msiK RNA: a 60-nucleotide sequence from Parafrankia colletiae. A search with the family's covariance model found it, with a score of 50 bits. It is annotated as a cis-regulatory element. Pairs were carried over by alignment from the consensus structure, which is taken from published work.
RNA sequence: UGGCGGCUCCGUUCACUCGGAUCGUCCGGCACGUUCCUGCCGGUGAAAGGUGUGCCACAA
Number, nucleotide and partner (000 for none) at each position: 001u000002g000003g000004c000005g000006g000007c000008u000009c050010c049011g000012u047013u046014c045015a044016c000017u000018c000019g000020g000021a000022u000023c000024g000025u000026c043027c042028g041029g040030c039031a038032c000033g000034u000035u000036c000037c000038u031039g030040c029041c028042g027043g026044u015045g014046a013047a012048a000049g010050g009051u000052g000053u000054g000055c000056c000057a000058c000059a000060a000